RNA sequence: UUAGAGCCCAAAGGUGUGAUAAUGAGAACACAAGAGGUAUUGGCAUUUUUUAAUUAGCAGCUAAUGCACUUUGUGUUCUCAGGUCACCCCUUUGAGCCACAC
Numbered sequence: 001u002u003a004g005a006g007c008c009c010a011a012a013g014g015u016g017u018g019a020u021a022a023u024g025a026g027a028a029c030a031c032a033a034g035a036g037g038u039a040u041u042g043g044c045a046u047u048u049u050u051u052a053a054u055u056a057g058c059a060g061c062u063a064a065u066g067c068a069c070u071u072u073g074u075g076u077u078c079u080c081a082g083g084u085c086a087c088c089c090c091u092u093u094g095a096g097c098c099a100c101a102c
Base pairs, nucleotide, nucleotide: 007096011092012091013090014089016087017086018085019084024080025079026078027077028076029075030074031073032072033071
A member of the RNA family "MIR398 microRNA precursor family" from Acer saccharum, 102 nucleotides long. The family's consensus secondary structure was predicted with WAR. The organism belongs to Acer, within Eukaryota.